RNA sequence: GGAUGUGAGGGCGAUCUGGCUGCGACAUCUGUCACCCCAUUGAUCGCCAGGGUUGAUUCGGCUGAUCUGGCUGGCUAGGCGGGUGUCCCCUUCCUCCCUCACUGCUCCAUGUGUAUCCCUCCCGAAGCUGCUCACUCGGUCGAAGAGGACGACCUUCCCCGAUAGAGGAGGACCGUUCUUUGGUCAAGGGUAUACGAGUAGCUGCGCUCCCCUGCUAGAACCUCCAAACAAGCUCUCAAGGUUUAACUUCAUUUUCUCAUAUAGGGAUACAUGAAUUCUGAACUCUAAGUCAAGCAUGGUUUGGGCUCACUGUUUGAAACUU
Numbered sequence: 001g002g003a004u005g006u007g008a009g010g011g012c013g014a015u016c017u018g019g020c021u022g023c024g025a026c027a028u029c030u031g032u033c034a035c036c037c038c039a040u041u042g043a044u045c046g047c048c049a050g051g052g053u054u055g056a057u058u059c060g061g062c063u064g065a066u067c068u069g070g071c072u073g074g075c076u077a078g079g080c081g082g083g084u085g086u087c088c089c090c091u092u093c094c095u096c097c098c099u100c101a102c103u104g105c106u107c108c109a110u111g112u113g114u115a116u117c118c119c120u121c122c123c124g125a126a127g128c129u130g131c132u133c134a135c136u137c138g139g140u141c142g143a144a145g146a147g148g149a150c151g152a153c154c155u156u157c158c159c160c161g162a163u164a165g166a167g168g169a170g171g172a173c174c175g176u177u178c179u180u181u182g183g184u185c186a187a188g189g190g191u192a193u194a195c196g197a198g199u200a201g202c203u204g205c206g207c208u209c210c211c212c213u214g215c216u217a218g219a220a221c222c223u224c225c226a227a228a229c230a231a232g233c234u235c236u237c238a239a240g241g242u243u244u245a246a247c248u249u250c251a252u253u254u255u256c257u258c259a260u261a262u263a264g265g266g267a268u269a270c271a272u273g274a275a276u277u278c279u280g281a282a283c284u285c286u287a288a289g290u291c292a293a294g295c296a297u298g299g300u301u302u303g304g305g306c307u308c309a310c311u312g313u314u315u316g317a318a319a320c321u322u
Stems, first nucleotide, its partner, number of pairs: 001108003005102007013093002018090002024087010035074002037070003042067004046062003116171002118168004122139004127135001140162003147158003201306003210299002213296003222289002232285001
Dot-bracket structure: (((.(((((((.((...((....((((((((((.(((((..(((((((...........))).)))))))..))...)))))))))).)).))..)))))))...))).......((((((((((.(.......)))))(((....(((......))).)))..)))).)).............................(((......((.(((......((........(....................................................)..))....))).))....)))................
The family of this 322-nucleotide sequence from Marmota marmota is "7SK RNA". Taxonomically the source falls in Marmota marmota (Eukaryota, Mammalia, Rodentia, Marmotini). Rfam's curators write: 7SK was discovered as an abundant small nuclear RNA in the mid-70s but a possible function has only recently been suggested. Two independent studies have found that 7SK RNA binds the CDK9/cyclin T complex (known as elongation factor P-TEFb). P-TEFb activates transcription by phosphorylating the C-terminal domain of RNA polymerase II. This process is negatively regulated by the 7SK RNP. The secondary structure of 7SK RNA shown here was proposed by Wasserman and Steitz on the basis of chemical modification and enzymatic cleavage experiments. This family contains a number of annotated pseudogenes and 7SK derived repeats. The threshold is artificially high to minimise the pseudogene count. Clan: 7SK clan. It scores 267 bits against the family's covariance model. Rfam classes the family as a non-coding RNA gene. Rfam 15.1 lists 49,373 matches to the family in 668 species. On this family, see Blencowe, Curr Biol 2002: "Transcription: surprising role for an elusive small nuclear RNA".